Shown here is a 105-nucleotide RNA from Prunus avium, a member of the family "MIR6274 microRNA precursor family". The match comes from Rfam's covariance-model search (82 bits). Rfam links the family to the GO terms RISC complex and miRNA-mediated post-transcriptional gene silencing. The base pairs follow the family's consensus structure, which was predicted with RNAalifold.

RNA sequence: UGAUAUCACUUUUUGCUAUCUCCAGCUAAUAACGCAAUGAUAUAUGGGAUAACCUUUCCAUAUGUCACUGUGUUAUUGAUUGGGAAUAGCAAAACAGUGCUAUCC
Numbered sequence: 001u002g003a004u005a006u007c008a009c010u011u012u013u014u015g016c017u018a019u020c021u022c023c024a025g026c027u028a029a030u031a032a033c034g035c036a037a038u039g040a041u042a043u044a045u046g047g048g049a050u051a052a053c054c055u056u057u058c059c060a061u062a063u064g065u066c067a068c069u070g071u072g073u074u075a076u077u078g079a080u081u082g083g084g085a086a087u088a089g090c091a092a093a094a095c096a097g098u099g100c101u102a103u104c105c
Stems, first nucleotide, its partner, number of pairs: 002104004011094009021084005027078010038067012